[Rfam]
RNA: raiA-hairpin RNA
Organism: Streptomyces minutiscleroticus
RNA sequence: CACCGAGUCCGAGGCUCCGGGACGCUCCGGGGCCGGUGCGAAAUGGA
Number, nucleotide and partner (000 for none) at each position: 001c000002a000003c000004c000005g000006a000007g000008u000009c000010c000011g000012a000013g034014g033015c032016u031017c030018c029019g028020g027021g000022a000023c000024g000025c000026u000027c020028c019029g018030g017031g016032g015033c014034c013035g000036g000037u000038g000039c000040g000041a000042a000043a000044u000045g000046g000047a000